[Rfam]
RNA sequence: GGGAAGUGAUGAAGCAGAGCUGACUGGGUGUGUUUGGAUGGAGGGUGUGUGUGAGGGCUGGGAUUACCCAGGGUUGGGUGGGGUGUGUGUGUGGGUGUGAGGGAGGCUCUCCUGGGGGCACUGAGGGCCCUGCUGAGUCCGGAGUGCAUCUGAGGCGUGUUGGGCACCCCGGGGCCCCUCUGCAACACUGCCUGUGAUUAAAGCCCCAAAUGAGCCCACCAGGAGAGCCCAGGCAGCCCAGAUCUCUGCCAGGGUCACUGUGAUCCUGGGUCUGAUCCCA
Numbered sequence: 001g002g003g004a005a006g007u008g009a010u011g012a013a014g015c016a017g018a019g020c021u022g023a024c025u026g027g028g029u030g031u032g033u034u035u036g037g038a039u040g041g042a043g044g045g046u047g048u049g050u051g052u053g054a055g056g057g058c059u060g061g062g063a064u065u066a067c068c069c070a071g072g073g074u075u076g077g078g079u080g081g082g083g084u085g086u087g088u089g090u091g092u093g094g095g096u097g098u099g100a101g102g103g104a105g106g107c108u109c110u111c112c113u114g115g116g117g118g119c120a121c122u123g124a125g126g127g128c129c130c131u132g133c134u135g136a137g138u139c140c141g142g143a144g145u146g147c148a149u150c151u152g153a154g155g156c157g158u159g160u161u162g163g164g165c166a167c168c169c170c171g172g173g174g175c176c177c178c179u180c181u182g183c184a185a186c187a188c189u190g191c192c193u194g195u196g197a198u199u200a201a202a203g204c205c206c207c208a209a210a211u212g213a214g215c216c217c218a219c220c221a222g223g224a225g226a227g228c229c230c231a232g233g234c235a236g237c238c239c240a241g242a243u244c245u246c247u248g249c250c251a252g253g254g255u256c257a258c259u260g261u262g263a264u265c266c267u268g269g270g271u272c273u274g275a276u277c278c279c280a
Stems, first nucleotide, its partner, number of pairs: 001279004158187005163178002167174002
Description
The family of this 280-nucleotide RNA from Orthonyx spaldingii is "Small Cajal body-specific RNA 7". A search with the family's covariance model found it, with a score of 98 bits. Pairs were carried over by alignment from the consensus structure. Rfam links the family to the GO terms RNA processing and nucleolus.